Notes: The record is a 273-nucleotide RNA from Eubucco bourcierii, which matches "RNase MRP" in Rfam. A search with the family's covariance model found it, with a score of 164 bits. The family's consensus secondary structure is taken from published work. Rfam describes the family as follows. RNase MRP is an enzymatically active ribonucleoprotein with two distinct roles in eukaryotes. In mitochondria it plays a direct role in the initiation of mitochondrial DNA replication. In the nucleus it is involved in precursor rRNA processing, where it cleaves the internal transcribed spacer 1 between 18S and 5.8S rRNAs. Despite distinct functions, RNase MRP has been shown to be evolutionarily related to RNase P. Like eukaryotic RNase P, RNase MRP is not catalytically active without associated protein subunits.
Nucleotides: 273
Stems, first nucleotide, its partner, number of pairs: 002273004007268005014226006022079007038054005084258002087256004099111004112127006129199003134194005144186001146184001155181004165174003228243006
Number, partner (000 for none) and nucleotide at each position: 001000g002273g003272a004271u005270g006000c007268u008267c009266u010265g011264a012000a013000g014226a015225c016224c017223u018222g019221c020000u021000c022079u023078c024077u025076a026075g027074g028073c029000u030000c031000a032000c033000g034000c035000a036000c037000g038054g039053a040052g041051g042050a043000c044000g045000g046000u047000g048000g049000u050042u051041c052040c053039u054038c055000a056000c057000g058000g059000g060000c061000c062000c063000g064000u065000g066000a067000u068000a069000g070000c071000c072000c073028g074027c075026c076025u077024a078023g079022g080000g081000g082000a083000a084258a085257g086000u087256c088255c089254c090253c091000g092000g093000a094000c095000c096000g097000c098000u099111g100110g101109c102108a103000g104000a105000g106000a107000g108102u109101g110100c111099c112127g113126g114125g115124c116123g117122c118000u119000a120000u121000c122117g123116c124115g125114c126113c127112c128000c129199c130198g131197c132000a133000c134194g135193c136192c137191c138190c139000c140000a141000u142000c143000u144186c145000a146184c147000g148000c149000a150000g151000u152000c153000u154000u155181c156180c157179g158178c159000c160000g161000a162000g163000a164000c165174g166173c167172c168000u169000c170000c171000g172167g173166g174165c175000u176000g177000a178158g179157c180156g181155g182000g183000u184146g185000a186144g187000c188000g189000c190138g191137g192136g193135g194134c195000g196000g197131g198130c199129g200000u201000c202000u203000c204000g205000u206000c207000a208000c209000g210000g211000c212000c213000a214000c215000a216000g217000a218000u219000a220000c221019g222018c223017a224016g225015g226014u227000a228243g229242u230241g231240c232239g233238c234000a235000g236000g237000u238233g239232c240231g241230c242229a243228c244000u245000a246000a247000c248000a249000g250000a251000a252000c253090g254089g255088g256087g257085c258084u259000c260000a261000c262000u263000c264011u265010c266009a267008g268007g269000c270005c271004a272003u273002c
The source organism's lineage runs through Eukaryota, Eumetazoa, Amniota, Sauropsida and Eubucco. Its family is annotated with ribonuclease MRP activity, ribonuclease MRP complex and rRNA processing in the Gene Ontology.